[Rfam]
RNA sequence: CUUCAAGAGUUGCGGUGCCAAGCUCCGACUGGCCGCACACCAACCCCAUGUUCACGGGUGGUUCGGAUGAGGAAGCGGCCUUCGCCGCCCUGAUGGGCGCUGGCGGGGGCAAGAGCAACCG
Numbered sequence: 001c002u003u004c005a006a007g008a009g010u011u012g013c014g015g016u017g018c019c020a021a022g023c024u025c026c027g028a029c030u031g032g033c034c035g036c037a038c039a040c041c042a043a044c045c046c047c048a049u050g051u052u053c054a055c056g057g058g059u060g061g062u063u064c065g066g067a068u069g070a071g072g073a074a075g076c077g078g079c080c081u082u083c084g085c086c087g088c089c090c091u092g093a094u095g096g097g098c099g100c101u102g103g104c105g106g107g108g109g110c111a112a113g114a115g116c117a118a119c120c121g
Base pairs, nucleotide, nucleotide: 001075002074003073004072009038011037012036013035014034015033016032021030022029039062040061041060044058045057046056078110079109080108081107082106083105084104085103086102087101
Shown here is a 121-nucleotide RNA sequence from Arthrobacter pigmenti, a member of the family "SAM (S-adenosyl methionine) riboswitch aptamer". NCBI's taxonomy places the organism under Bacteria, Bacillati, Micrococcales, Micrococcaceae, Arthrobacter. It scores 70 bits against the family's covariance model. Pairs were carried over by alignment from the consensus structure, which is taken from published work.